The family of this 67-nucleotide RNA from Bacillus subtilis is "Bacillaceae-1 RNA".
Rfam classes the family as a small RNA.
Rfam 15.1 lists 5,721 matches to the family in 247 species.
The base pairs follow the family's consensus structure, which is taken from published work.

RNA sequence: AUAAAAGGAACGGCGGCUAAAUGCUUAGGCGUCCUGCCUAAACACCGCCGUCAUCACAUCCUGUAAA
Numbered sequence: 001a002u003a004a005a006a007g008g009a010a011c012g013g014c015g016g017c018u019a020a021a022u023g024c025u026u027a028g029g030c031g032u033c034c035u036g037c038c039u040a041a042a043c044a045c046c047g048c049c050g051u052c053a054u055c056a057c058a059u060c061c062u063g064u065a066a067a
Stems, first nucleotide, its partner, number of pairs: 011050006026040005054066001056064002